RNA sequence: GAAGGAGCAAUACCAAUUUCUUCUUUUAUCAAAAGGGUUGGUAUUGAUCCUUUUUUU
Numbered sequence: 001g002a003a004g005g006a007g008c009a010a011u012a013c014c015a016a017u018u019u020c021u022u023c024u025u026u027u028a029u030c031a032a033a034a035g036g037g038u039u040g041g042u043a044u045u046g047a048u049c050c051u052u053u054u055u056u057u
Stems, first nucleotide, its partner, number of pairs: 001053006008046007018035002021032002

Shown here is a 57-nucleotide sequence from Jatropha curcas, a member of the family "Plastid-psbA-3 3UTR RNA".
The literature on the family includes a 2023 paper in Plant Commun by Richter et al., "Retrograde signaling in plants: A critical review focusing on the GUN pathway and beyond".
The source organism's lineage runs through Eukaryota, Streptophyta, eudicotyledons, Pentapetalae and Jatropha.
Rfam classes the family as a cis-regulatory element.
The base pairs follow the family's consensus structure, which was predicted with LocARNA.